Overview
This 135-nucleotide sequence from Propithecus coquereli belongs to the Rfam family "small Cajal body-specific RNA 17". The match comes from Rfam's covariance-model search (130 bits). A reference for the family is Darzacq et al. (2002), "Cajal body-specific small nuclear RNAs: a novel class of 2'-O-methylation and pseudouridylation guide RNAs", EMBO J. Gene Ontology terms of the family: nucleolus, Cajal body and RNA processing.
[Rfam]
RNA sequence: CUCUCGGGUCCUCGAUGCAGCCCUCGGAUGAGCCCGCAGUAUUUUCCUUAUAUGAUCAGGUCCUAUUGCUACUUGCGCGGAGCCUGAGAGGAUUAUGAAAACGUAGCAGGCGACGUGGGGCCAGGGGACCCGGCC
Number, nucleotide and partner (000 for none) at each position: 001c000002u000003c133004u000005c132006g131007g130008g129009u128010c127011c126012u125013c124014g000015a000016u000017g000018c000019a000020g121021c120022c119023c118024u117025c000026g000027g000028a000029u000030g000031a000032g000033c000034c000035c000036g000037c000038a000039g000040u000041a000042u000043u000044u000045u000046c000047c000048u000049u000050a000051u000052a000053u000054g000055a000056u087057c086058a085059g084060g083061u082062c000063c080064u079065a000066u000067u000068g076069c075070u000071a000072c000073u000074u000075g069076c068077g000078c000079g064080g063081a000082g061083c060084c059085u058086g057087a056088g000089a000090g000091g000092a000093u000094u000095a000096u000097g000098a000099a000100a000101a000102c000103g000104u000105a000106g000107c000108a000109g000110g000111c000112g000113a000114c000115g000116u000117g024118g023119g022120g021121c020122c000123a000124g013125g012126g011127g010128a009129c008130c007131c006132g005133g003134c000135c000
scaRNAs are a specific class of small nuclear RNAs which localise to the Cajal bodies and guide the modification of RNA polymerase II transcribed spliceosomal RNAs U1, U2, U4, U5 and U12. The complete human U12-22/U4-8 scaRNA is composed of two tandem C/D box domains (termed U12-22 and U4-8). Lineage of the source: Eukaryota > Dipnotetrapodomorpha > Eutheria > Lemuriformes > Propithecus.